c-di-GMP-I riboswitch aptamer: an 84-nucleotide sequence from Halolactibacillus alkaliphilus.

[Rfam]
RNA sequence: AUACGAUAAUGGCAAAAUAUCCGAAAGGAUAUGACGCAAAGCUACGGAUCUAAAGCGCUGAGCUAUGACCGCCGGGUUACCUUA
Numbered sequence: 001a002u003a004c005g006a007u008a009a010u011g012g013c014a015a016a017a018u019a020u021c022c023g024a025a026a027g028g029a030u031a032u033g034a035c036g037c038a039a040a041g042c043u044a045c046g047g048a049u050c051u052a053a054a055g056c057g058c059u060g061a062g063c064u065a066u067g068a069c070c071g072c073c074g075g076g077u078u079a080c081c082u083u084a
Stems, first nucleotide, its partner, number of pairs: 012037002017032006040078004045074003049068002055063002

The base pairs follow the family's consensus structure, which is taken from published work.
Gene Ontology term of the family: cyclic-di-GMP binding.
NCBI's taxonomy places the organism under Bacteria, Bacillota, Caryophanales, Bacillaceae, Halolactibacillus.